[Rfam]
Nucleotides: 074
Stems, first nucleotide, its partner, number of pairs: 017066003021062002026057002031052004037047004
Number, partner (000 for none) and nucleotide at each position: 001000a002000u003000u004000u005000a006000c007000c008000c009000c010000c011000g012000c013000a014000c015000c016000u017066c018065g019064g020000a021062u022061c023000g024000a025000a026057g027056c028000g029000g030000a031052a032051a033050u034049c035000c036000u037047u038046u039045g040044c041000a042000a043000a044040g045039c046038a047037a048000a049034g050033a051032u052031u053000g054000g055000a056027g057026c058000g059000a060000a061022g062021a063000g064019c065018u066017g067000g068000a069000u070000c071000g072000a073000u074000u
Notes: This 74-nucleotide RNA sequence from Leptospira ryugenii belongs to the Rfam family "Flavo-1 RNA". The organism belongs to Leptospira, within Bacteria. By type it is a small RNA. The match comes from Rfam's covariance-model search (53 bits). The family's consensus secondary structure is taken from published work.